[Rfam]
RNA sequence: UAAUACAUUUAAAAGGGAACAAGCAUAACUUGUUCCCCCUGUAGAACCGUUUAAGACGGUGGCUCUUUGGGUUAAAAAAUA
Dot-bracket structure: ...................((((.....)))).............((((((...)))))).....................
Numbered sequence: 001u002a003a004u005a006c007a008u009u010u011a012a013a014a015g016g017g018a019a020c021a022a023g024c025a026u027a028a029c030u031u032g033u034u035c036c037c038c039c040u041g042u043a044g045a046a047c048c049g050u051u052u053a054a055g056a057c058g059g060u061g062g063c064u065c066u067u068u069g070g071g072u073u074a075a076a077a078a079a080u081a
Stems, first nucleotide, its partner, number of pairs: 020032004046060006
RNA anti-toxin A: an 81-nucleotide RNA from Granulicatella sp. WM01. The family's RNA type in Rfam is antitoxin RNA.